[Rfam]
RNA sequence: CCAGGUGCAGGCCUUCUCUUCCCGGUUCUUCCCGGAGUCGGGAAAAGCUGGGUUGAGAGGGCGGAAAAAAAAAAAA
Number, nucleotide and partner (000 for none) at each position: 001c000002c000003a000004g000005g000006u000007g000008c000009a000010g000011g000012c000013c000014u059015u058016c057017u056018c055019u000020u000021c052022c051023c050024g049025g048026u000027u000028c000029u044030u043031c042032c041033c040034g039035g000036a000037g000038u000039c034040g033041g032042g031043a030044a029045a000046a000047g000048c025049u024050g023051g022052g021053u000054u000055g018056a017057g016058a015059g014060g000061g000062c000063g000064g000065a000066a000067a000068a000069a000070a000071a000072a000073a000074a000075a000076a000

The record is a 76-nucleotide RNA sequence from Microcebus murinus, which matches "mir-320 microRNA precursor family" in Rfam. It scores 90 bits against the family's covariance model. Rfam 15.1 lists 659 matches to the family in 129 species. Pairs were carried over by alignment from the consensus structure, which was predicted with RNAalifold.